[Rfam]
RNA: MIR6274 microRNA precursor family
RNA sequence: AGAUAACACUUUUUGCUAUCUCCAGUCAAUAACGCAAUGACACGUGAGAUAACUUUUUCACGUGUCAUUGUGUUAUUGAUUGGGGAUAGCAAAACAGUAUUAUCC
Numbered sequence: 001a002g003a004u005a006a007c008a009c010u011u012u013u014u015g016c017u018a019u020c021u022c023c024a025g026u027c028a029a030u031a032a033c034g035c036a037a038u039g040a041c042a043c044g045u046g047a048g049a050u051a052a053c054u055u056u057u058u059c060a061c062g063u064g065u066c067a068u069u070g071u072g073u074u075a076u077u078g079a080u081u082g083g084g085g086a087u088a089g090c091a092a093a094a095c096a097g098u099a100u101u102a103u104c105c
Stems, first nucleotide, its partner, number of pairs: 002104004011094009021084029